[Rfam]
RNA sequence: GCGCCGUUAAAGGUUCAUUAAGCUUACAGGCGUUUAGUAUGCGCAUCCAGUGAUCUGGAUUCUUACCGAGUGGUUGGAGCCACUUUGUUUGACGCCUCCCUGUUAAACUCCUGAGAGCCGCCUUAUCCGCGGCUCUUUUUUU
Numbered sequence: 001g002c003g004c005c006g007u008u009a010a011a012g013g014u015u016c017a018u019u020a021a022g023c024u025u026a027c028a029g030g031c032g033u034u035u036a037g038u039a040u041g042c043g044c045a046u047c048c049a050g051u052g053a054u055c056u057g058g059a060u061u062c063u064u065a066c067c068g069a070g071u072g073g074u075u076g077g078a079g080c081c082a083c084u085u086u087g088u089u090u091g092a093c094g095c096c097u098c099c100c101u102g103u104u105a106a107a108c109u110c111c112u113g114a115g116a117g118c119c120g121c122c123u124u125a126u127c128c129g130c131g132g133c134u135c136u137u138u139u140u141u142u
Stems, first nucleotide, its partner, number of pairs: 001042002004013002015037001019036005046059004068085006091104004113137009
Alphaproteobacterial sRNA BjrC1505: a 142-nucleotide RNA sequence from Mesorhizobium intechi. NCBI's taxonomy places the organism under Bacteria, Pseudomonadati, Hyphomicrobiales, Phyllobacteriaceae, Mesorhizobium. A reference for the family is Madhugiri et al. (2012), "Small RNAs of the Bradyrhizobium/Rhodopseudomonas lineage and their analysis", RNA Biol. It is annotated as a small RNA.